The record is an 87-nucleotide RNA sequence from Sporomusa termitida, which matches "c-di-GMP-I riboswitch aptamer" in Rfam.
The family's consensus secondary structure is taken from published work.
RNA sequence: CACCUAUAACGGCAUACUUGUCGAAAGGCAAGGACGCAAAGCCAUGGGUCUAAAGGCUGGAAAGCCUAUGAUUGCCAGGUUGCAAAU
Numbered sequence: 001c002a003c004c005u006a007u008a009a010c011g012g013c014a015u016a017c018u019u020g021u022c023g024a025a026a027g028g029c030a031a032g033g034a035c036g037c038a039a040a041g042c043c044a045u046g047g048g049u050c051u052a053a054a055g056g057c058u059g060g061a062a063a064g065c066c067u068a069u070g071a072u073u074g075c076c077a078g079g080u081u082g083c084a085a086a087u
Stems, first nucleotide, its partner, number of pairs: 012037002017032006040081004045077003048072003055066004